[Rfam]
RNA sequence: ACUCUCCUGGCUCUAGCAGCACAGAAAUAUUGGCACUGGGUAGCAAGUCUGCCAAUACUGGCUGUGCUGCUCCAGACAGGGUAGU
Numbered sequence: 001a002c003u004c005u006c007c008u009g010g011c012u013c014u015a016g017c018a019g020c021a022c023a024g025a026a027a028u029a030u031u032g033g034c035a036c037u038g039g040g041u042a043g044c045a046a047g048u049c050u051g052c053c054a055a056u057a058c059u060g061g062c063u064g065u066g067c068u069g070c071u072c073c074a075g076a077c078a079g080g081g082u083a084g085u
Stems, first nucleotide, its partner, number of pairs: 001085003005081002015071009026059001028057008
RNA: mir-15 microRNA precursor family
Organism: Nannospalax galili